RNA: Plastid-psbA-1 3UTR RNA
Organism: Triticum urartu
RNA sequence: UUGAAGUUCCAUCUAUUAAUGGAUAAGGUUUUUCUACUAAGAUAUAAGAAUUUUUUAAGACAGAAAUACCCAAUAUCUUGCUAGAACAAGAUAUUGGGUAUUUCUGUCUU
Numbered sequence: 001u002u003g004a005a006g007u008u009c010c011a012u013c014u015a016u017u018a019a020u021g022g023a024u025a026a027g028g029u030u031u032u033u034c035u036a037c038u039a040a041g042a043u044a045u046a047a048g049a050a051u052u053u054u055u056u057a058a059g060a061c062a063g064a065a066a067u068a069c070c071c072a073a074u075a076u077c078u079u080g081c082u083a084g085a086a087c088a089a090g091a092u093a094u095u096g097g098g099u100a101u102u103u104c105u106g107u108c109u110u
Stems, first nucleotide, its partner, number of pairs: 008023005057110013071096003075092005